[Rfam]
RNA sequence: CGGGUUGCCCCGUGUUGCUGACGGACCCCCGACCUGGCAGCAACACGGGGUUUCCUC
Numbered sequence: 001c002g003g004g005u006u007g008c009c010c011c012g013u014g015u016u017g018c019u020g021a022c023g024g025a026c027c028c029c030c031g032a033c034c035u036g037g038c039a040g041c042a043a044c045a046c047g048g049g050g051u052u053u054c055c056u057c
Base pairs, nucleotide, nucleotide: 002056003055004054007051008050009049010048011047012046013045014044015043016042017041018040019039020038022036
RNA: F6 TB sRNA